Overview: Rfam assigns this 92-nucleotide RNA from Bacillus sp. B1-b2 to the family "pan motif". Lineage of the source: Bacteria > Bacillati > Bacillota > Bacillaceae > Bacillus. Pairs were carried over by alignment from the consensus structure, which is taken from published work. The family's RNA type in Rfam is cis-regulatory element.
RNA sequence: CGGGCAGUAUCUAUAUAGAACUGCACCUAUAUUUAUGUGCAAAAUAAUAAUUAUAUCUGCCUAGAUCCAAAAAAACGGACAAGGACAGAGGG
Numbered sequence: 001c002g003g004g005c006a007g008u009a010u011c012u013a014u015a016u017a018g019a020a021c022u023g024c025a026c027c028u029a030u031a032u033u034u035a036u037g038u039g040c041a042a043a044a045u046a047a048u049a050a051u052u053a054u055a056u057c058u059g060c061c062u063a064g065a066u067c068c069a070a071a072a073a074a075a076c077g078g079a080c081a082a083g084g085a086c087a088g089a090g091g092g
Stems, first nucleotide, its partner, number of pairs: 002027002004024005010019002057088003060084003064080001066079003